A member of the RNA family "Flavo-1 RNA" from Gillisia hiemivivida, 79 nucleotides long. The source organism's lineage runs through Bacteria, Bacteroidota, Flavobacteriia, Flavobacteriales and Gillisia. The family's RNA type in Rfam is small RNA. The match comes from Rfam's covariance-model search (58 bits). Pairs were carried over by alignment from the consensus structure, which is taken from published work.
Nucleotides: 079
Stems, first nucleotide, its partner, number of pairs: 012071003016067002021062002026057003032052008
Number, partner (000 for none) and nucleotide at each position: 001000a002000u003000u004000u005000u006000g007000c008000a009000u010000u011000a012071g013070g014069g015000a016067u017066u018000g019000c020000a021062g022061c023000g024000a025000u026057a027056u028055c029000c030000u031000u032052u033051u034050a035049a036048u037047u038046u039045u040000u041000u042000u043000g044000a045039g046038a047037a048036a049035u050034u051033a052032a053000a054000a055028g056027a057026u058000u059000a060000a061022g062021c063000g064000c065000a066017a067016a068000g069014c070013c071012c072000g073000a074000c075000a076000g077000c078000u079000u